[Rfam]
RNA sequence: CAAGCUAGAGGCAGCAACUGCAUACCUUGCAAGAAAAAAUCGGUUUUGUUGACGUACCGAUGAUUUUCUUGCAAGUUGUGCAGUUGUUGUCUCAAGCUUG
Numbered sequence: 001c002a003a004g005c006u007a008g009a010g011g012c013a014g015c016a017a018c019u020g021c022a023u024a025c026c027u028u029g030c031a032a033g034a035a036a037a038a039a040u041c042g043g044u045u046u047u048g049u050u051g052a053c054g055u056a057c058c059g060a061u062g063a064u065u066u067u068c069u070u071g072c073a074a075g076u077u078g079u080g081c082a083g084u085u086g087u088u089g090u091c092u093c094a095a096g097c098u099u100g
Base pairs, nucleotide, nucleotide: 001100002099003098004097005096008093009092011090012089021080022079023078026075028073029072030071031070032069035066036065037064